[Rfam]
RNA: Bacillaceae-1 RNA
Organism: Bacillus sp. FJAT-50079
RNA sequence: AUGUAAGGAACGGAGCCUAAAAUUGCUAUAUUGUGUGGCAACGGCUUCGUUACCAACUCCUGUUCA
Numbered sequence: 001a002u003g004u005a006a007g008g009a010a011c012g013g014a015g016c017c018u019a020a021a022a023u024u025g026c027u028a029u030a031u032u033g034u035g036u037g038g039c040a041a042c043g044g045c046u047u048c049g050u051u052a053c054c055a056a057c058u059c060c061u062g063u064u065c066a
Base pairs, nucleotide, nucleotide: 011049012048013047014046015045016044017043025039026038027037028036029035055064056063057062